This 99-nucleotide RNA belongs to the Rfam family "PhotoRC-II RNA". The family's RNA type in Rfam is cis-regulatory element.

RNA sequence: ACCCUAAGUACAACUGCUCUUAAACCGAGACCUAUAGGCAGUAUAAUACCUCGUCUCUAAUAUCCACCAGUGAAGGGAUUGGUGGAAAUAUAGUAUCGC
Dot-bracket structure: ............(((((.((......[[[[[....)))))))..........]]]]]......(((((((........)))))))..............